RNA sequence: GGAGUCGGCCGGACAGUCGCGUCAUUCAUUUGAAUGCCGAGGAAAGUCCGGGCUCCACAGGGCACGGUGCCAGGUAACGCCUGGGCGGCGCGAGUCGACGGAAAGUGCAACAGAAAGAUACCGCCUAUGUCCGGGCAACCGGGCAGGCAAGGGUGAAAUGGUGCGGUAAGAGCGCACCGCGAGCCUGGUAACAGGCCGGCACGGCAAACCCCACCGGGAGCAAGACCAAAUAGGGAGGCAAUGCCGCGGCCCGCGGUGUCUCCGGGUAGGUUGCUUGAGCGUAUCGGCGACGAUGCGCCUAGAGGAAUGACUGUCCACGACAGAACCCGGCUUACAGGCCGGCUCCGCCA
Numbered sequence: 001g002g003a004g005u006c007g008g009c010c011g012g013a014c015a016g017u018c019g020c021g022u023c024a025u026u027c028a029u030u031u032g033a034a035u036g037c038c039g040a041g042g043a044a045a046g047u048c049c050g051g052g053c054u055c056c057a058c059a060g061g062g063c064a065c066g067g068u069g070c071c072a073g074g075u076a077a078c079g080c081c082u083g084g085g086c087g088g089c090g091c092g093a094g095u096c097g098a099c100g101g102a103a104a105g106u107g108c109a110a111c112a113g114a115a116a117g118a119u120a121c122c123g124c125c126u127a128u129g130u131c132c133g134g135g136c137a138a139c140c141g142g143g144c145a146g147g148c149a150a151g152g153g154u155g156a157a158a159u160g161g162u163g164c165g166g167u168a169a170g171a172g173c174g175c176a177c178c179g180c181g182a183g184c185c186u187g188g189u190a191a192c193a194g195g196c197c198g199g200c201a202c203g204g205c206a207a208a209c210c211c212c213a214c215c216g217g218g219a220g221c222a223a224g225a226c227c228a229a230a231u232a233g234g235g236a237g238g239c240a241a242u243g244c245c246g247c248g249g250c251c252c253g254c255g256g257u258g259u260c261u262c263c264g265g266g267u268a269g270g271u272u273g274c275u276u277g278a279g280c281g282u283a284u285c286g287g288c289g290a291c292g293a294u295g296c297g298c299c300u301a302g303a304g305g306a307a308u309g310a311c312u313g314u315c316c317a318c319g320a321c322a323g324a325a326c327c328c329g330g331c332u333u334a335c336a337g338g339c340c341g342g343c344u345c346c347g348c349c350a
Stems, first nucleotide, its partner, number of pairs: 001346010011335001012315007020039002023036005044333003048330005053220004060252004065216005070084005085099001086097004100211002105209002107205002121152002123148003129144006160178006179200001180198002183196005224272004234263006243257005279298008